[Rfam]
RNA: SAM riboswitch aptamer (S box leader)
RNA sequence: CUGUUAUCAAGAAAGGCGGAGGGAUUAGACCCUAUGAAACCUUAGCAACCCUUUACUCGUAAAGAAGGUGCUAAAUUCUACUUAUUACUGUUUCGUGCAGUUUAUAGAUAGAUAACGA
Numbered sequence: 001c002u003g004u005u006a007u008c009a010a011g012a013a014a015g016g017c018g019g020a021g022g023g024a025u026u027a028g029a030c031c032c033u034a035u036g037a038a039a040c041c042u043u044a045g046c047a048a049c050c051c052u053u054u055a056c057u058c059g060u061a062a063a064g065a066a067g068g069u070g071c072u073a074a075a076u077u078c079u080a081c082u083u084a085u086u087a088c089u090g091u092u093u094c095g096u097g098c099a100g101u102u103u104a105u106a107g108a109u110a111g112a113u114a115a116c117g118a
Stems, first nucleotide, its partner, number of pairs: 002117007013043004021032003026080004044072004049068002051064004076110001081107002